[Rfam]
RNA: Mammalian CPEB3 ribozyme
Organism: Alligator sinensis
RNA sequence: AGAGGUCACAAAUUUGAGGCUAAAGCAGAAGUGCUCACAGUGCAGCCCGUCAGAUCCCAGUGAAUCCGUGAAUUCUGCU
Numbered sequence: 001a002g003a004g005g006u007c008a009c010a011a012a013u014u015u016g017a018g019g020c021u022a023a024a025g026c027a028g029a030a031g032u033g034c035u036c037a038c039a040g041u042g043c044a045g046c047c048c049g050u051c052a053g054a055u056c057c058c059a060g061u062g063a064a065u066c067c068g069u070g071a072a073u074u075c076u077g078c079u
Stems, first nucleotide, its partner, number of pairs: 018047004024079007031043003051068001053066003057062001